[Rfam]
RNA sequence: CCCUGCAUUCGAAAGUGAUCGCGGUCUGGUGCGUGACCUGGUCAUUGAUAGUGCAGGAAGAGCAGCCCGGAAGCGUUUCCCGUGUUUGGUGGGUGUGCGGCCGUCCCUCCCAAACCCUGGAGCUUUCACACA
Numbered sequence: 001c002c003c004u005g006c007a008u009u010c011g012a013a014a015g016u017g018a019u020c021g022c023g024g025u026c027u028g029g030u031g032c033g034u035g036a037c038c039u040g041g042u043c044a045u046u047g048a049u050a051g052u053g054c055a056g057g058a059a060g061a062g063c064a065g066c067c068c069g070g071a072a073g074c075g076u077u078u079c080c081c082g083u084g085u086u087u088g089g090u091g092g093g094u095g096u097g098c099g100g101c102c103g104u105c106c107c108u109c110c111c112a113a114a115c116c117c118u119g120g121a122g123c124u125u126u127c128a129c130a131c132a
Stems, first nucleotide, its partner, number of pairs: 002057008014046008023038004069127006084115005089109001091107003
RNA: Small nucleolar RNA SNORA71